Shown here is an 84-nucleotide RNA from Streptomyces canus, a member of the family "nrdJ RNA". The source organism's lineage runs through Bacteria, Kitasatosporales, Streptomycetaceae, Streptomyces and Streptomyces canus. The family's RNA type in Rfam is small RNA.
RNA sequence: ACCUGUUGCGGGCGGUAGCGAGUGGGCGCCCGCAAACCAGACAGAACACCGUGCCACGGGAACAACGGGGCACUUCAGGGCGUU
Numbered sequence: 001a002c003c004u005g006u007u008g009c010g011g012g013c014g015g016u017a018g019c020g021a022g023u024g025g026g027c028g029c030c031c032g033c034a035a036a037c038c039a040g041a042c043a044g045a046a047c048a049c050c051g052u053g054c055c056a057c058g059g060g061a062a063c064a065a066c067g068g069g070g071c072a073c074u075u076c077a078g079g080g081c082g083u084u
Stems, first nucleotide, its partner, number of pairs: 004036001006035009016024002051073005057067002